[Rfam]
RNA sequence: AAUAGUAGCAGCAUAGUCAAGUGAAAAUCUUGACCGCCGAAGGGGCCAGGUUUCCUCGGCAAUGAUCAUCAGCCGAGGGUUAGUCGGUCCUAAGAUGUACCGUAACUCGAGUACAUCGAAUCAGGGAAACAGGUUAAUAUUCCUGUACCGUUCGACAAUAAUCCUGACGCUUCAGGGCAGACCGAGCGGCGUCGUCGCGCCGUUUAAGCGCCGAAGUUUGUGGAGAGCCGUAAUGGCGAGAAGCGAAUGAAUGCGUUAUGACGAAAGUCGGUUGCACCCCGGAGCCCGUGAAAAGGGGUCGAAACGUCCGUACCAAGAUCUGACACAGGUGCCCCUAGCUGAAAAGGCUAAGGCGUGA
Numbered sequence: 001a002a003u004a005g006u007a008g009c010a011g012c013a014u015a016g017u018c019a020a021g022u023g024a025a026a027a028u029c030u031u032g033a034c035c036g037c038c039g040a041a042g043g044g045g046c047c048a049g050g051u052u053u054c055c056u057c058g059g060c061a062a063u064g065a066u067c068a069u070c071a072g073c074c075g076a077g078g079g080u081u082a083g084u085c086g087g088u089c090c091u092a093a094g095a096u097g098u099a100c101c102g103u104a105a106c107u108c109g110a111g112u113a114c115a116u117c118g119a120a121u122c123a124g125g126g127a128a129a130c131a132g133g134u135u136a137a138u139a140u141u142c143c144u145g146u147a148c149c150g151u152u153c154g155a156c157a158a159u160a161a162u163c164c165u166g167a168c169g170c171u172u173c174a175g176g177g178c179a180g181a182c183c184g185a186g187c188g189g190c191g192u193c194g195u196c197g198c199g200c201c202g203u204u205u206a207a208g209c210g211c212c213g214a215a216g217u218u219u220g221u222g223g224a225g226a227g228c229c230g231u232a233a234u235g236g237c238g239a240g241a242a243g244c245g246a247a248u249g250a251a252u253g254c255g256u257u258a259u260g261a262c263g264a265a266a267g268u269c270g271g272u273u274g275c276a277c278c279c280c281g282g283a284g285c286c287c288g289u290g291a292a293a294a295g296g297g298g299u300c301g302a303a304a305c306g307u308c309c310g311u312a313c314c315a316a317g318a319u320c321u322g323a324c325a326c327a328g329g330u331g332c333c334c335c336u337a338g339c340u341g342a343a344a345a346g347g348c349u350a351a352g353g354c355g356u357g358a
Base pairs, nucleotide, nucleotide: 016034017033018032019031020030021029035355036354037353038352043334044333045332046331049314050313054078055077056076057075058074059073063071064070085310086309087308089125090124094117095116096115097114098113099112101109102108129146130145131144132143133142149306150305151304152303153301154300155299163297164296165295169285170284171283172282173281175279176278177277180273181272182271183270184269185204186203187202188201189200190199208256209255210254211253217247218246219245220244221243227237228236229235262267320329321328336350337349338348339347
This 358-nucleotide part of an RNA from Methanimicrococcus blatticola belongs to the Rfam family "Archaeal large subunit ribosomal RNA". The organism belongs to Methanimicrococcus, within Archaea. For this family Rfam cites "Crystal structure of the ribosome at 5.5 A resolution" (Yusupov et al., Science, 2001). The match comes from Rfam's covariance-model search (2896 bits). Its Rfam clan is "LSU clan".